A member of the RNA family "Archaeal small subunit ribosomal RNA" from a halophilic archaeon, 358 nucleotides of a longer RNA.
RNA sequence: GGCCUAAAGCGUUCGUAGCUGGCCAGUCAAGUUCGUCGGGAAACCUACCCGCUUAACGGGUAGCCGUCCGGCGAAAACUGAUUGGCUUGGGACCGGGAGACUUGAGGGGUACGUCCGGGGUAGGAGUGAAAUCCUGUAAUCCUGGACGGACCACCGAUGGCGAAAGCACCUCAAGAGCACGGAUCCGACAGUGAGGAACGAAAGCUGGGGUCUCGAACCGGAUUAGAUACCCGGGUAGUCCCAGCUGUAAACGAUGCUCGUUAGGUAUGGCACAGGCUACGAGCCUGUGCUAUGCCGUAGGGAAGCCGUAAGCGAGCCGCCUGGGAAGUACGUCUGCAAGGAUGAAACUUAAAGGAAU
Dot-bracket structure: (((.....(.((((.(.(((.(((((((.(((((((((((....(((((((.....)))))))...)))))))))..)))))))))...((((((.(...(((((((((..((((((((...(((......)))......))))))))..)).......((....)).)))))))..).))).)))...))))..))))....((((((....(...((((.........))))...).))))))..........((((((..((((((((((((((.....))))))))))))))...((....))....)))))))))).(((......((((....))))....)))........